[Rfam]
RNA sequence: AAGGUUCUUCGGGGCAGGGUGUAAUUCCCGACCGGCGGUAUAGUCCGCGACCCGUCCUUGUGGCGGCUGAAUUGGUGCAAUUCCAAUACCGACAGUAAAGUCUGGAUGUGAGAAGAAUUCG
Numbered sequence: 001a002a003g004g005u006u007c008u009u010c011g012g013g014g015c016a017g018g019g020u021g022u023a024a025u026u027c028c029c030g031a032c033c034g035g036c037g038g039u040a041u042a043g044u045c046c047g048c049g050a051c052c053c054g055u056c057c058u059u060g061u062g063g064c065g066g067c068u069g070a071a072u073u074g075g076u077g078c079a080a081u082u083c084c085a086a087u088a089c090c091g092a093c094a095g096u097a098a099a100g101u102c103u104g105g106a107u108g109u110g111a112g113a114a115g116a117a118u119u120c121g
Base pairs, nucleotide, nucleotide: 003119004118005117006116007115008114009113010112017029018028019027031101032100033091034090035048036047037046038045043089044088052066053065071087072086073085074084075083093104094103095102
Rfam assigns this 121-nucleotide RNA sequence from Acetivibrio ethanolgignens to the family "FMN riboswitch aptamer (RFN element)". It scores 117 bits against the family's covariance model. Lineage of the source: Bacteria > Bacillati > Bacillota > Clostridia > Acetivibrio. The base pairs follow the family's consensus structure, which is taken from published work.